[Rfam]
RNA sequence: CCGGGGCCGCGGCGCUUUGGCCGGUGUGGUACAGAGAAGCCGGCUUGUUUACCCGCCCGGCCCGGG
Number, nucleotide and partner (000 for none) at each position: 001c066002c065003g000004g063005g062006g061007c060008c000009g058010c000011g056012g000013c000014g049015c000016u047017u000018u000019g045020g044021c043022c042023g041024g040025u039026g032027u031028g000029g000030u000031a027032c026033a000034g000035a000036g000037a000038a000039g025040c024041c023042g022043g021044c020045u019046u000047g016048u000049u014050u000051a000052c000053c000054c000055g000056c011057c000058c009059g000060g007061c006062c005063c004064g000065g002066g001

Shown here is a 66-nucleotide sequence from Pluvianellus socialis, a member of the family "MAT2A 3'UTR stem loop F". The family's consensus secondary structure is taken from published work. The match comes from Rfam's covariance-model search (52 bits). The family's RNA type in Rfam is cis-regulatory element.